[Rfam]
RNA sequence: CAUCGAUAAGGAGAUGGCAUUCCUCCUUCAAAUUGCCUGACAAUGGCUGAUGAUGCCUACUGAUUU
Numbered sequence: 001c002a003u004c005g006a007u008a009a010g011g012a013g014a015u016g017g018c019a020u021u022c023c024u025c026c027u028u029c030a031a032a033u034u035g036c037c038u039g040a041c042a043a044u045g046g047c048u049g050a051u052g053a054u055g056c057c058u059a060c061u062g063a064u065u066u
Stems, first nucleotide, its partner, number of pairs: 010026004016057006035047003
About this RNA: Rfam assigns this 66-nucleotide RNA from Eoetvoesiella caeni to the family "Fluoride riboswitch aptamer (crcB RNA motif)". Taxonomically the source falls in Eoetvoesiella (Bacteria, Pseudomonadati, Betaproteobacteria, Burkholderiales). The base pairs follow the family's consensus structure, which is taken from published work.